[Rfam]
RNA sequence: GUCCCCUAUGAUGAUAUAAGAUUGACCAUGCUAAUUCCGAAAUUUGUUUGUGAAGAGAAUUUAUGUUAUGAUUAUCUGAGGGAGCA
Numbered sequence: 001g002u003c004c005c006c007u008a009u010g011a012u013g014a015u016a017u018a019a020g021a022u023u024g025a026c027c028a029u030g031c032u033a034a035u036u037c038c039g040a041a042a043u044u045u046g047u048u049u050g051u052g053a054a055g056a057g058a059a060u061u062u063a064u065g066u067u068a069u070g071a072u073u074a075u076c077u078g079a080g081g082g083a084g085c086a
Stems, first nucleotide, its partner, number of pairs: 001085002004082004

Source information:
Rfam assigns this 86-nucleotide RNA sequence from Nicotiana attenuata to the family "Small nucleolar RNA snoR53Y". By type it is a C/D-box small nucleolar RNA. The family has 7 seed sequences and 513 matches in Rfam 15.1. Its family is annotated with RNA processing and nucleolus in the Gene Ontology. The family is grouped with related families in Rfam's "snoR53 clan".